[Rfam]
A member of the RNA family "mir-16 microRNA precursor family" from Pelusios castaneus, 71 nucleotides long. Pairs were carried over by alignment from the consensus structure, which was predicted with PFOLD. The family has 14 seed sequences and 4,705 matches in Rfam 15.1.

RNA sequence: GUCAGGCUGUAACAGCAAAUCAAAAUGUUUUGAAUCCUAACACCUAUUUUGAUUUGCUGUUACAGUCUGAC
Dot-bracket structure: (((.(((..(((((((((.(.(((((...................))))))..))))))))..)))).)))
Its Rfam clan is "mir-15 clan".